[Rfam]
RNA sequence: UUUCGGGAACAGGUUUUGUAACAAAAAUCUGUUCUUUGGAAAAAUAUAGUUCGUGUGAUUAGGCAGCGGCCAGACAACCGUAGAGAUGAUUCCACAGAUGACGGGCCGUACUAUCCCGUUUUUGUCUACUAAAAACAUCUCACAUUU
Numbered sequence: 001u002u003u004c005g006g007g008a009a010c011a012g013g014u015u016u017u018g019u020a021a022c023a024a025a026a027a028u029c030u031g032u033u034c035u036u037u038g039g040a041a042a043a044a045u046a047u048a049g050u051u052c053g054u055g056u057g058a059u060u061a062g063g064c065a066g067c068g069g070c071c072a073g074a075c076a077a078c079c080g081u082a083g084a085g086a087u088g089a090u091u092c093c094a095c096a097g098a099u100g101a102c103g104g105g106c107c108g109u110a111c112u113a114u115c116c117c118g119u120u121u122u123u124g125u126c127u128a129c130u131a132a133a134a135a136c137a138u139c140u141c142a143c144a145u146u147u
Base pairs, nucleotide, nucleotide: 002040003039004038005037006036007034008033009032010031011030012029013028014027015026016025017024083141084140085139086138087137088136090134101123103121104120105119106118

This 147-nucleotide RNA sequence from Castanea mollissima belongs to the Rfam family "small nucleolar RNA snoR143".
A search with the family's covariance model found it, with a score of 72 bits.
Taxonomically the source falls in Castanea (Eukaryota, Tracheophyta, Mesangiospermae, Fagaceae).